[Rfam]
RNA sequence: CUGAGCAGUGAUGAUAAAAAGUUAUCCCUGUCUGAAAUCGAUCUGUGCGCUGUGGAAGCAGAACUCUGAGGCUCAG
Numbered sequence: 001c002u003g004a005g006c007a008g009u010g011a012u013g014a015u016a017a018a019a020a021g022u023u024a025u026c027c028c029u030g031u032c033u034g035a036a037a038u039c040g041a042u043c044u045g046u047g048c049g050c051u052g053u054g055g056a057a058g059c060a061g062a063a064c065u066c067u068g069a070g071g072c073u074c075a076g
Base pairs, nucleotide, nucleotide: 001076002075003074004073005072006071
RNA: Small nucleolar RNA R38